RNA sequence: GACUAUUCUUAACGUAUCAGGGUCCAGCAGCAUAAAACCCCGACUAUCGGGGUUUUUUGUUAUCUGAGUUUUUUAAAUGACUCAGGUCACUGCUUGGUUUUUUGAUUGGGCUCUGAGCCCUUUUUUU
Numbered sequence: 001g002a003c004u005a006u007u008c009u010u011a012a013c014g015u016a017u018c019a020g021g022g023u024c025c026a027g028c029a030g031c032a033u034a035a036a037a038c039c040c041c042g043a044c045u046a047u048c049g050g051g052g053u054u055u056u057u058u059g060u061u062a063u064c065u066g067a068g069u070u071u072u073u074u075a076a077a078u079g080a081c082u083c084a085g086g087u088c089a090c091u092g093c094u095u096g097g098u099u100u101u102u103u104g105a106u107u108g109g110g111c112u113c114u115g116a117g118c119c120c121u122u123u124u125u126u127u
Stems, first nucleotide, its partner, number of pairs: 034056009108120004
Gammaprotebacteria rimP leader: a 127-nucleotide RNA sequence from Vibrio parahaemolyticus. On this family, see Naville and Gautheret, Genome Biol 2010: "Premature terminator analysis sheds light on a hidden world of bacterial transcriptional attenuation". The family's RNA type in Rfam is cis-regulatory leader. Lineage of the source: Bacteria > Pseudomonadota > Gammaproteobacteria > Vibrionales > Vibrio parahaemolyticus. The family's consensus secondary structure is taken from published work. Rfam's curators put it in the seed alignment. Gene Ontology term of the family: regulation of gene expression.